This 70-nucleotide sequence from Heterostelium album belongs to the Rfam family "Class I RNA from Dictyostelium". The family's RNA type in Rfam is non-coding RNA gene.
[Rfam]
RNA sequence: GGUCUCUCGCAGCAAUCAACUUAUCAAGUACUUUUGUUUAAAUAAUGAAAUUCUCAAUAAUAGGGAUCUG
Numbered sequence: 001g002g003u004c005u006c007u008c009g010c011a012g013c014a015a016u017c018a019a020c021u022u023a024u025c026a027a028g029u030a031c032u033u034u035u036g037u038u039u040a041a042a043u044a045a046u047g048a049a050a051u052u053c054u055c056a057a058u059a060a061u062a063g064g065g066a067u068c069u070g
Stems, first nucleotide, its partner, number of pairs: 001068003004064002